[Rfam]
A member of the RNA family "Small nucleolar RNA SNORA51" from Pipistrellus kuhlii, 128 nucleotides long. Rfam 15.1 lists 2,121 matches to the family in 210 species. ACA51 is a member of the H/ACA class of snoRNA that guide the sites of modification of uridines to pseudouridines. Lineage of the source: Eukaryota > Metazoa > Gnathostomata > Yangochiroptera > Pipistrellus. The family's consensus secondary structure was predicted with PFOLD.
RNA sequence: GGCCUCCUGGUGCUUACCACAGGCUGUGUGCUUACACUGACUGUACAGAAAUAGGAGGCAGAGUAAACCUACCCCAUAUACACCUCAGCUCAGGAUCUUUGGUCUGAAUUGUGAAUGGGGAGACAUUG
Numbered sequence: 001g002g003c004c005u006c007c008u009g010g011u012g013c014u015u016a017c018c019a020c021a022g023g024c025u026g027u028g029u030g031c032u033u034a035c036a037c038u039g040a041c042u043g044u045a046c047a048g049a050a051a052u053a054g055g056a057g058g059c060a061g062a063g064u065a066a067a068c069c070u071a072c073c074c075c076a077u078a079u080a081c082a083c084c085u086c087a088g089c090u091c092a093g094g095a096u097c098u099u100u101g102g103u104c105u106g107a108a109u110u111g112u113g114a115a116u117g118g119g120g121a122g123a124c125a126u127u128g
Base pairs, nucleotide, nucleotide: 002059003058004057005056006055007054008053020043021042022041026037027036028035029034072120073119074118075117076116077115086106087105088104090102091101092100093099094098